[Rfam]
Rfam assigns this 131-nucleotide sequence from Otolemur garnettii to the family "Small nucleolar RNA SNORA51".
It is annotated as an H/ACA-box small nucleolar RNA.
The family has 9 seed sequences and 2,121 matches in Rfam 15.1.
Rfam links the family to the GO terms RNA processing and nucleolus.
RNA sequence: GACCUCCUGGUCUUACCACAGGCUGUGUUCUUACACUGACUGUAUAAAAAGAGGAGGCAAAGUAAACCUGCCCUAUGUACACCCCAGCCCAGGCCCCAUGCCUGGUCUGUAUUAUGAAUGGGGGAAUAUGG
Numbered sequence: 001g002a003c004c005u006c007c008u009g010g011u012c013u014u015a016c017c018a019c020a021g022g023c024u025g026u027g028u029u030c031u032u033a034c035a036c037u038g039a040c041u042g043u044a045u046a047a048a049a050a051g052a053g054g055a056g057g058c059a060a061a062g063u064a065a066a067c068c069u070g071c072c073c074u075a076u077g078u079a080c081a082c083c084c085c086a087g088c089c090c091a092g093g094c095c096c097c098a099u100g101c102c103u104g105g106u107c108u109g110u111a112u113u114a115u116g117a118a119u120g121g122g123g124g125a126a127u128a129u130g131g
Stems, first nucleotide, its partner, number of pairs: 003057006019042003025036004071123006085109003089105006

The family's consensus secondary structure was predicted with PFOLD. Rfam describes the family as follows. ACA51 is a member of the H/ACA class of snoRNA that guide the sites of modification of uridines to pseudouridines.